[Rfam]
RNA sequence: CAUGUCUAUUGUACUUCAUCAGGUGCUCUGGUUGUUUUCGAUACCCGGCACAUGUUGGAGUACACUUAAUGUG
Number, nucleotide and partner (000 for none) at each position: 001c073002a072003u071004g070005u000006c000007u000008a000009u000010u064011g063012u062013a000014c060015u059016u058017c057018a056019u000020c054021a053022g000023g051024u050025g049026c048027u047028c000029u000030g045031g044032u000033u000034g000035u000036u000037u000038u000039c000040g000041a000042u000043a000044c031045c030046c000047g027048g026049c025050a024051c023052a000053u021054g020055u000056u018057g017058g016059a015060g014061u000062a012063c011064a010065c000066u000067u000068a000069a000070u004071g003072u002073g001

Overview: This 73-nucleotide RNA from Aedes aegypti belongs to the Rfam family "mir-305 microRNA precursor family". Rfam links the family to the GO terms RISC complex and miRNA-mediated post-transcriptional gene silencing. The literature on the family includes a 2007 paper in Genome Biol by Weaver et al., "Computational and transcriptional evidence for microRNAs in the honey bee genome".